[Rfam]
RNA sequence: AGCUCAUCCAGAGGGGCAGAGGGAACGGCCCGUUGAAGCCCCGGCAACCCUCCCGCCGGUCUCGCGAUUCCGAUGCGAGGUCCCCGGUGGGGAUGGUGCCAAUUCCGUCCCGCGGCGAGGGUCGUCGCGGGGAAGAUGAGGA
Numbered sequence: 001a002g003c004u005c006a007u008c009c010a011g012a013g014g015g016g017c018a019g020a021g022g023g024a025a026c027g028g029c030c031c032g033u034u035g036a037a038g039c040c041c042c043g044g045c046a047a048c049c050c051u052c053c054c055g056c057c058g059g060u061c062u063c064g065c066g067a068u069u070c071c072g073a074u075g076c077g078a079g080g081u082c083c084c085c086g087g088u089g090g091g092g093a094u095g096g097u098g099c100c101a102a103u104u105c106c107g108u109c110c111c112g113c114g115g116c117g118a119g120g121g122u123c124g125u126c127g128c129g130g131g132g133a134a135g136a137u138g139a140g141g142a
Stems, first nucleotide, its partner, number of pairs: 003140006013042005021031003025108004043100004048096002050092004104134001109131009